[Rfam]
RNA sequence: CCGAGCGGUCGUGACUGGCGAAGCGGGGAGAUCACCCCGAGGAAGCGACCACCCGAACCAUCGAGAUUCGCGAGCCGCCGCCUGGGCCCCGAUC
Numbered sequence: 001c002c003g004a005g006c007g008g009u010c011g012u013g014a015c016u017g018g019c020g021a022a023g024c025g026g027g028g029a030g031a032u033c034a035c036c037c038c039g040a041g042g043a044a045g046c047g048a049c050c051a052c053c054c055g056a057a058c059c060a061u062c063g064a065g066a067u068u069c070g071c072g073a074g075c076c077g078c079c080g081c082c083u084g085g086g087c088c089c090c091g092a093u094c
Stems, first nucleotide, its partner, number of pairs: 003054001005052001007050006015042002017082004025038004072089001074087003
RNA: ZMP/ZTP riboswitch aptamer (pfl RNA motif)